[Rfam]
RNA sequence: GGAUGUGAGGGCGAUCUGGUUGCGACAUCUGUCACCCCAUUGAUCGCCAGGGUUGAUUCGGCUGAUCUGGCUGGCUAGGCGGGUGUCCCCUUCCUCCCUCACUGCUCCAUGUGCGUCCCUCCCGAAGCUGCGCGCUCGGUCGAAGAGGACGACCAUCCCCGAUAGAGGAGGACUGGUCUUCGGUCAAGGGUAUACGAGUAGCUGCGCUCCCCUGCUAGAACCUCCAAACAAGCUCUCAAGGUCCAAAAAGGUGGUAGGAGAUUAGCUGGAGAAAAACAGACAUAAUCAAGAUAUACUU
Numbered sequence: 001g002g003a004u005g006u007g008a009g010g011g012c013g014a015u016c017u018g019g020u021u022g023c024g025a026c027a028u029c030u031g032u033c034a035c036c037c038c039a040u041u042g043a044u045c046g047c048c049a050g051g052g053u054u055g056a057u058u059c060g061g062c063u064g065a066u067c068u069g070g071c072u073g074g075c076u077a078g079g080c081g082g083g084u085g086u087c088c089c090c091u092u093c094c095u096c097c098c099u100c101a102c103u104g105c106u107c108c109a110u111g112u113g114c115g116u117c118c119c120u121c122c123c124g125a126a127g128c129u130g131c132g133c134g135c136u137c138g139g140u141c142g143a144a145g146a147g148g149a150c151g152a153c154c155a156u157c158c159c160c161g162a163u164a165g166a167g168g169a170g171g172a173c174u175g176g177u178c179u180u181c182g183g184u185c186a187a188g189g190g191u192a193u194a195c196g197a198g199u200a201g202c203u204g205c206g207c208u209c210c211c212c213u214g215c216u217a218g219a220a221c222c223u224c225c226a227a228a229c230a231a232g233c234u235c236u237c238a239a240g241g242u243c244c245a246a247a248a249a250g251g252u253g254g255u256a257g258g259a260g261a262u263u264a265g266c267u268g269g270a271g272a273a274a275a276a277c278a279g280a281c282a283u284a285a286u287c288a289a290g291a292u293a294u295a296c297u298u
Stems, first nucleotide, its partner, number of pairs: 001108003005102007013093002018090002024087010035074002037070003042067004046062003116171002118168004122139004127135002140162003147158003201266003207260002211258005222250002
This 298-nucleotide RNA from Muntiacus reevesi belongs to the Rfam family "7SK RNA". The family's RNA type in Rfam is non-coding RNA gene. About the family: 7SK was discovered as an abundant small nuclear RNA in the mid-70s but a possible function has only recently been suggested. Two independent studies have found that 7SK RNA binds the CDK9/cyclin T complex (known as elongation factor P-TEFb). Lineage of the source: Eukaryota > Tetrapoda > Theria > Muntiacinae > Muntiacus. The base pairs follow the family's consensus structure, which is taken from published work. The match comes from Rfam's covariance-model search (299 bits).